The family of this 104-nucleotide RNA from Eubacterium plexicaudatum is "SAM riboswitch aptamer (S box leader)". It scores 65 bits against the family's covariance model.
[Rfam]
RNA sequence: CUCUUAUUCGGAGUGAUGGAGAUACAUAGGAUCUGUGAAGUCACGGCAACCCCCUGCUGAUGCGUGGAAGGUGCCAACCUGAGCGAGUAAUCGAACAAUAAGAG
Numbered sequence: 001c002u003c004u005u006a007u008u009c010g011g012a013g014u015g016a017u018g019g020a021g022a023u024a025c026a027u028a029g030g031a032u033c034u035g036u037g038a039a040g041u042c043a044c045g046g047c048a049a050c051c052c053c054c055u056g057c058u059g060a061u062g063c064g065u066g067g068a069a070g071g072u073g074c075c076a077a078c079c080u081g082a083g084c085g086a087g088u089a090a091u092c093g094a095a096c097a098a099u100a101a102g103a104g
Base pairs, nucleotide, nucleotide: 001104002103003102004101005100006099007098008097013044014043015042016041017040021033022032023031027083030080045075046074047073048072050071051070052067053066055064084093085092086091